[Rfam]
RNA sequence: GAGUAAGUGCAGGGGUUUCUUUCGGCCUCCAGCAGAUUUAAGGGCUGUAGGCCGGCGGAAACUACUUGCUUUUGCUU
Numbered sequence: 001g002a003g004u005a006a007g008u009g010c011a012g013g014g015g016u017u018u019c020u021u022u023c024g025g026c027c028u029c030c031a032g033c034a035g036a037u038u039u040a041a042g043g044g045c046u047g048u049a050g051g052c053c054g055g056c057g058g059a060a061a062c063u064a065c066u067u068g069c070u071u072u073u074g075c076u077u
Base pairs, nucleotide, nucleotide: 005073006072007071010068011067012066013065014063015062016061017060018059019058020057022055023054024053025052026051027050028049030047031046032045
RNA: mir-2796 microRNA precursor family